[Rfam]
Shown here is an 80-nucleotide RNA sequence from Papio anubis, a member of the family "mir-1914 microRNA precursor family".
RNA sequence: CCUGUGAGCCUGCCCUGUGCCUGGCCCACUUCUGCUUCCUCUUAGCCCAGGAGGGGUCCCGCGCUGGGAGGGGCCCUCAC
Number, nucleotide and partner (000 for none) at each position: 001c000002c000003u079004g078005u000006g076007a000008g074009c073010c072011u071012g000013c068014c067015c066016u000017g064018u063019g062020c061021c000022u000023g058024g057025c056026c055027c054028a000029c053030u052031u051032c050033u049034g048035c000036u000037u000038c000039c000040u000041c000042u000043u000044a000045g000046c000047c000048c034049a033050g032051g031052a030053g029054g027055g026056g025057u024058c023059c000060c000061g020062c019063g018064c017065u000066g015067g014068g013069a000070g000071g011072g010073g009074c008075c000076c006077u000078c004079a003080c000